[Rfam]
Rfam assigns this 96-nucleotide RNA sequence from Aotus nancymaae to the family "Y RNA". The match comes from Rfam's covariance-model search (54 bits).
Nucleotides: 096
Stems, first nucleotide, its partner, number of pairs: 002092001004090005010085002015080001016076006026062002030058001
Number, partner (000 for none) and nucleotide at each position: 001000g002092g003000c004090u005089g006088g007087u008086c009000c010085g011084a012000u013000g014000g015080u016076a017075g018074u019073g020072g021071g022000u023000u024000a025000u026062c027061a028000g029000a030058a031000c032000a033000u034000a035000u036000u037000a038000a039000c040000a041000u042000u043000u044000a045000u046000u047000g048000u049000u050000a051000c052000u053000a054000a055000a056000g057000u058030u059000g060000g061027u062026g063000u064000a065000c066000a067000a068000u069000c070000c071021c072020c073019c074018a075017c076016u077000g078000c079000u080015a081000a082000g083000u084011u085010u086008g087007a088006c089005u090004g091000a092002c093000a094000a095000a096000a
Lineage of the source: Eukaryota > Teleostomi > Sarcopterygii > Boreoeutheria > Aotus. About the family: Y RNAs are components of the Ro ribonucleoprotein particle (Ro RNP), in association with Ro60 and La proteins. The Y RNAs and Ro60 and La proteins are well conserved, but the function of the Ro RNP is not known. In humans the RNA component can be one of four small RNAs -- hY1, hY3, hY4 and hY5. These small RNAs are predicted to fold into a conserved secondary structure containing three stem structures.